[Rfam]
RNA sequence: GUCAUGUGACUGCCUGUCUGUGCCUGCUGUACAGGUGAGCGGAUGUUCUGCACAGCAAGUGUAGACAGGCAGACACAUGAC
Numbered sequence: 001g002u003c004a005u006g007u008g009a010c011u012g013c014c015u016g017u018c019u020g021u022g023c024c025u026g027c028u029g030u031a032c033a034g035g036u037g038a039g040c041g042g043a044u045g046u047u048c049u050g051c052a053c054a055g056c057a058a059g060u061g062u063a064g065a066c067a068g069g070c071a072g073a074c075a076c077a078u079g080a081c
Stems, first nucleotide, its partner, number of pairs: 006076003011071009023059001025057006032050003
Overview
This 81-nucleotide RNA from Artibeus jamaicensis belongs to the Rfam family "mir-214 microRNA precursor family". Taxonomically the source falls in Artibeus (Eukaryota, Euteleostomi, Tetrapoda, Boreoeutheria). Rfam's curators put it in the seed alignment. The family's consensus secondary structure was predicted with RNAalifold. Gene Ontology terms of the family: miRNA-mediated post-transcriptional gene silencing and RISC complex.